[Rfam]
RNA: Mu-gpT-DE RNA
RNA sequence: CCCUGACAGUCGCAUGCGCGGCUGACAUUUGCCAAGACAGGAGAACAACAUG
Numbered sequence: 001c002c003c004u005g006a007c008a009g010u011c012g013c014a015u016g017c018g019c020g021g022c023u024g025a026c027a028u029u030u031g032c033c034a035a036g037a038c039a040g041g042a043g044a045a046c047a048a049c050a051u052g
Stems, first nucleotide, its partner, number of pairs: 002041004007024005